A member of the RNA family "psaA RNA", 184 nucleotides long. It is one of the family's seed sequences. Pairs were carried over by alignment from the consensus structure, which is taken from published work. The family's RNA type in Rfam is cis-regulatory element.
[Rfam]
RNA sequence: UCCGCCAGCGGUCCCCUCUUUGGGGCCCCAGCUUCAGUGCAGGCAAGGGGUUUCGACCCCUUGCCGUACUGACGCCCGAAUCCUGAUUCCUUGCGAAUCCGUGUUCGGGGCCCCGAUUGGCUUCGGCCCGUCGGAGGGGUGGCCCACCACCUCGAAACCCGUCCCUCGAGGAACGACUCGAUGA
Dot-bracket structure: .........((((((((((..(((((((..((.(((((((..(((((((((....))))))))).))))))).)).(((((.(.(((((.....))))).).))))))))))))(((.(((....))).))))))))))..))).....((((((..........)))))).............